[Rfam]
RNA sequence: GUUGUUCAGUGACGAGGCUGCGGAAUGCGCGCUGGGCACAGUGCCUGAGUCACAGACUGCGGAAAUGUUCCUCGCUGCCUGCCUUCUGAGGACAGC
Numbered sequence: 001g002u003u004g005u006u007c008a009g010u011g012a013c014g015a016g017g018c019u020g021c022g023g024a025a026u027g028c029g030c031g032c033u034g035g036g037c038a039c040a041g042u043g044c045c046u047g048a049g050u051c052a053c054a055g056a057c058u059g060c061g062g063a064a065a066u067g068u069u070c071c072u073c074g075c076u077g078c079c080u081g082c083c084u085u086c087u088g089a090g091g092a093c094a095g096c
Stems, first nucleotide, its partner, number of pairs: 001096005
A member of the RNA family "Small nucleolar RNA U83B" from Pteropus alecto, 96 nucleotides long. The source organism's lineage runs through Eukaryota, Euteleostomi, Dipnotetrapodomorpha, Chiroptera and Pteropus. Rfam links the family to the GO terms RNA processing and nucleolus. The base pairs follow the family's consensus structure. From the family's description: U83B belongs to the C/D family of snoRNAs. U83B like U83A has no documented RNA target and they share the same host gene with the C/D box snoRNA U43 (RPL3). N.B. U83A/B/C have no sequence similarity with the U83 snoRNA that was cloned by Jady and Kiss (2000). On this family, see Duga et al., Biochim Biophys Acta 2000: "The intron-containing L3 ribosomal protein gene (RPL3): sequence analysis and identification of U43 and of two novel intronic small nucleolar RNAs".